[Rfam]
RNA sequence: CUGCGGGCCACCUUCCCCCACCGGAAGGCGACUAUCUGAGAGGAUAGAUAGA
Numbered sequence: 001c002u003g004c005g006g007g008c009c010a011c012c013u014u015c016c017c018c019c020a021c022c023g024g025a026a027g028g029c030g031a032c033u034a035u036c037u038g039a040g041a042g043g044a045u046a047g048a049u050a051g052a
Stems, first nucleotide, its partner, number of pairs: 011028006032047006
RNA: serC leader